RNA sequence: UUCAGAUAAAUUGAUAGUCCUCAUAUAAUUUCGACGUUAUGGGUCGGAAGUUUCUACAUUGCAACCAAUAUUUGCAAUACUAUGGGGAAAAAGCAUUAUUAU
Numbered sequence: 001u002u003c004a005g006a007u008a009a010a011u012u013g014a015u016a017g018u019c020c021u022c023a024u025a026u027a028a029u030u031u032c033g034a035c036g037u038u039a040u041g042g043g044u045c046g047g048a049a050g051u052u053u054c055u056a057c058a059u060u061g062c063a064a065c066c067a068a069u070a071u072u073u074g075c076a077a078u079a080c081u082a083u084g085g086g087g088a089a090a091a092a093g094c095a096u097u098a099u100u101a102u
Base pairs, nucleotide, nucleotide: 018088019087020086021085022084023083024082025081029049030048031047032046033045034044035043058078059077060076061075062074063073064072
This 102-nucleotide RNA belongs to the Rfam family "Purine riboswitch aptamer". About the family: Riboswitches are metabolite binding domains within certain messenger RNAs that serve as precision sensors for their corresponding targets. A search with the family's covariance model found it, with a score of 76 bits. Pairs were carried over by alignment from the consensus structure, which is taken from published work.